Description:
A member of the RNA family "gntR-DTE RNA" from Streptomyces sp. Ru87, 120 nucleotides long. The family's consensus secondary structure is taken from published work. Taxonomically the source falls in Streptomyces (Bacteria, Actinomycetota, Actinomycetes, Kitasatosporales).
RNA sequence: CGGGUGAUGUCGUCGGCAGCCACUUCUAGGCGCACUGGCUCUGAUCACGCCCCUGACCAGGGGUGCCAACCCGUGCGCGCUGCCCUGCUAGGCGUCAGAGCAGUGACGAUGACGCCCCCG
Number, nucleotide and partner (000 for none) at each position: 001c000002g000003g000004g000005u000006g000007a000008u000009g000010u000011c000012g000013u000014c000015g084016g083017c082018a081019g080020c079021c000022a000023c000024u000025u000026c000027u000028a000029g000030g078031c077032g076033c075034a074035c073036u000037g071038g070039c000040u000041c000042u068043g067044a000045u000046c000047a000048c065049g064050c063051c062052c061053c000054u000055g000056a000057c000058c000059a000060g000061g052062g051063g050064u049065g048066c000067c043068a042069a000070c038071c037072c000073g035074u034075g033076c032077g031078c030079g020080c019081u018082g017083c016084c015085c000086u000087g000088c000089u000090a000091g000092g000093c000094g000095u000096c000097a000098g000099a000100g000101c000102a000103g000104u000105g000106a000107c000108g000109a000110u000111g000112a000113c000114g000115c000116c000117c000118c000119c000120g000